[Rfam]
RNA sequence: GGCGCGGCUAGGUUUGGCCGCCGAACACCGGGACCCGCACCCGGCCGCCGCGCCCUUUCCUUCAUGCGGG
Numbered sequence: 001g002g003c004g005c006g007g008c009u010a011g012g013u014u015u016g017g018c019c020g021c022c023g024a025a026c027a028c029c030g031g032g033a034c035c036c037g038c039a040c041c042c043g044g045c046c047g048c049c050g051c052g053c054c055c056u057u058u059c060c061u062u063c064a065u066g067c068g069g070g
Base pairs, nucleotide, nucleotide: 001054002053003052004051005050006049007048008047011022012021013020028044029043030042031041032040034070035069036068037067038066039065

Rfam assigns this 70-nucleotide RNA from Ferruginivarius sediminum to the family "int-alpA RNA". The family's RNA type in Rfam is small RNA. The family has 167 seed sequences and 577 matches in Rfam 15.1.